Description:
Rfam assigns this 66-nucleotide sequence to the family "DUF3800-VIII RNA". Bacteroidetes, Cyanobacteria, Firmicutes, Planctomycetes (1 example), Proteobacteria, Tenericutes (1 example). Rfam's curators put it in the seed alignment. By type it is a small RNA.
RNA sequence: AAAACCCGUGCUUUUCCGAAGCCCUGCGUUCCAUGCUGGGUACUUUGUAGGCAAAGCAGGGGAUUU
Numbered sequence: 001a002a003a004a005c006c007c008g009u010g011c012u013u014u015u016c017c018g019a020a021g022c023c024c025u026g027c028g029u030u031c032c033a034u035g036c037u038g039g040g041u042a043c044u045u046u047g048u049a050g051g052c053a054a055a056g057c058a059g060g061g062g063a064u065u066u
Stems, first nucleotide, its partner, number of pairs: 001066003005062003009058005016051002021041004026036004